[Rfam]
Shown here is a 62-nucleotide sequence from Gadus morhua, a member of the family "mir-7552 microRNA precursor family". NCBI's taxonomy places the organism under Eukaryota, Metazoa, Bilateria, Teleostei, Gadus.
RNA sequence: UUACAAUUAAAGGAUAUUUCUUGUGACUGUGACUAAACGGAAAUAUCUCUUAAUUGUUGGGU
Numbered sequence: 001u002u003a004c005a006a007u008u009a010a011a012g013g014a015u016a017u018u019u020c021u022u023g024u025g026a027c028u029g030u031g032a033c034u035a036a037a038c039g040g041a042a043a044u045a046u047c048u049c050u051u052a053a054u055u056g057u058u059g060g061g062u
Base pairs, nucleotide, nucleotide: 003057004056005055006054007053008052009051010050012048013047014046015045016044017043018042019041020040021039024035025034

The family's consensus secondary structure was predicted with RNAalifold. Rfam links the family to the GO terms miRNA-mediated post-transcriptional gene silencing and RISC complex. A search with the family's covariance model found it, with a score of 72 bits.